RNA: M-box riboswitch aptamer (ykoK leader)
Organism: Isobaculum melis
RNA sequence: AUUUGCUUCUGUUAGGUGAGGCUCCUAUAUGGAAAAAUGCUGCUGCCCAAAAAUAUCGAGAGAUGCCAAUGGGUCAACAAGUUUGGUCGGAUUAAGGCCAUUUUUAACGUAGCUGAUUUGAGAAAAUCUACGCCAUAUAGUGCUAAAGCUCGAUGAUGGGGAAUUUUG
Numbered sequence: 001a002u003u004u005g006c007u008u009c010u011g012u013u014a015g016g017u018g019a020g021g022c023u024c025c026u027a028u029a030u031g032g033a034a035a036a037a038u039g040c041u042g043c044u045g046c047c048c049a050a051a052a053a054u055a056u057c058g059a060g061a062g063a064u065g066c067c068a069a070u071g072g073g074u075c076a077a078c079a080a081g082u083u084u085g086g087u088c089g090g091a092u093u094a095a096g097g098c099c100a101u102u103u104u105u106a107a108c109g110u111a112g113c114u115g116a117u118u119u120g121a122g123a124a125a126a127u128c129u130a131c132g133c134c135a136u137a138u139a140g141u142g143c144u145a146a147a148g149c150u151c152g153a154u155g156a157u158g159g160g161g162a163a164u165u166u167u168g
Stems, first nucleotide, its partner, number of pairs: 005164001007162004011154002013095001015150003020144003025140008039113005045074005054065004080104002086098003115128003